[Rfam]
RNA sequence: ACCUCAUCCAGAGGGGCAGAGGGAACGGCCCGUUGAAGCCCCGGCAACCACCACGCACGUCUCGAUGGCGAGGCCCCGCGCGGCAGGUGCUAAUUCCGUCCCCGUGCGCGGCUGUCACGCCGGGGAAAGAUGAGAA
Numbered sequence: 001a002c003c004u005c006a007u008c009c010a011g012a013g014g015g016g017c018a019g020a021g022g023g024a025a026c027g028g029c030c031c032g033u034u035g036a037a038g039c040c041c042c043g044g045c046a047a048c049c050a051c052c053a054c055g056c057a058c059g060u061c062u063c064g065a066u067g068g069c070g071a072g073g074c075c076c077c078g079c080g081c082g083g084c085a086g087g088u089g090c091u092a093a094u095u096c097c098g099u100c101c102c103c104g105u106g107c108g109c110g111g112c113u114g115u116c117a118c119g120c121c122g123g124g125g126a127a128a129g130a131u132g133a134g135a136a
Stems, first nucleotide, its partner, number of pairs: 003134006013042005021031003025099004043091004048087002051083002095128001100125005
This 136-nucleotide RNA from Actinoplanes sp. ATCC 53533 belongs to the Rfam family "SAM riboswitch aptamer (S box leader)". Rfam links the family to the GO term regulation of gene expression. The base pairs follow the family's consensus structure, which is taken from published work. Taxonomically the source falls in Actinoplanes (Bacteria, Actinomycetota, Actinomycetes, Micromonosporaceae).